Nucleotides: 081
Base pairs, nucleotide, nucleotide: 002080003079004078005077
Number, partner (000 for none) and nucleotide at each position: 001000c002080a003079g004078c005077c006000u007000g008000a009000a010000g011000u012000g013000a014000u015000g016000a017000a018000c019000c020000a021000g022000u023000u024000c025000a026000u027000g028000u029000c030000u031000c032000u033000u034000c035000u036000c037000u038000g039000a040000g041000g042000u043000g044000g045000a046000u047000c048000c049000u050000g051000g052000a053000g054000a055000c056000a057000u058000c059000u060000a061000g062000a063000u064000u065000c066000a067000u068000u069000u070000c071000u072000g073000a074000u075000c076000a077005g078004g079003c080002u081000u